This 211-nucleotide RNA from Hucho hucho belongs to the Rfam family "Small nucleolar RNA SNORD17". The organism belongs to Hucho, within Eukaryota. Its family is annotated with nucleolus and RNA processing in the Gene Ontology. Rfam classes the family as a C/D-box small nucleolar RNA. Rfam's curators write: The snoRNA HBI-43 belongs to the C/D family of snoRNAs, guiding 2'O-ribose methylation at position U3797 of the 28S rRNA. Pseudouridylation in position U3797 is predicted to be guided by the H/ACA snoRNA ACA48. For this family Rfam cites "RNomics: an experimental approach that identifies 201 candidates for novel, small, non-messenger RNAs in mouse" (Huttenhofer et al., EMBO J, 2001).
RNA sequence: GUGAGAUGAUGAACGCGUUUAUCCAUUCUCUGAGUGCUUGCUAGGGUCCUACUUUCUCUGUGGUGCUCAUGUCUGUUUUAGCCAUGAGUGUCUGCUGUGUCCCUGGCUCCACUCUGCCACCUCAGUGUUCUACUGGGGCAGCUCAUGCUGGAGACGGGGGCAGGAUUGGAGGGCCCUGCGAUAACAAAGACGAGUUGACACACCUGAUCAC
Number, nucleotide and partner (000 for none) at each position: 001g000002u000003g000004a000005g000006a000007u000008g000009a000010u210011g209012a208013a000014c206015g000016c000017g203018u202019u000020u200021a000022u000023c197024c000025a195026u194027u193028c192029u000030c189031u188032g000033a000034g185035u184036g000037c000038u000039u000040g000041c180042u178043a177044g176045g175046g174047u173048c172049c171050u170051a000052c168053u000054u000055u164056c163057u000058c000059u000060g000061u000062g092063g091064u090065g089066c088067u087068c086069a085070u084071g083072u000073c081074u080075g000076u000077u000078u000079u000080a074081g073082c000083c071084a070085u069086g068087a067088g066089u065090g064091u063092c062093u000094g000095c000096u000097g000098u000099g161100u160101c159102c158103c157104u156105g155106g000107c000108u000109c000110c000111a000112c147113u145114c000115u000116g142117c141118c000119a000120c138121c137122u136123c135124a134125g133126u132127g131128u000129u000130c000131u127132a126133c125134u124135g123136g122137g121138g120139c000140a000141g117142c116143u000144c000145a113146u000147g112148c000149u000150g000151g000152a000153g000154a000155c105156g104157g103158g102159g101160g100161c099162a000163g056164g055165a000166u000167u000168g052169g000170a050171g049172g048173g047174c046175c045176c044177u043178g042179c000180g041181a000182u000183a000184a035185c034186a000187a000188a031189g030190a000191c000192g028193a027194g026195u025196u000197g023198a000199c000200a020201c000202a018203c017204c000205u000206g014207a000208u012209c011210a010211c000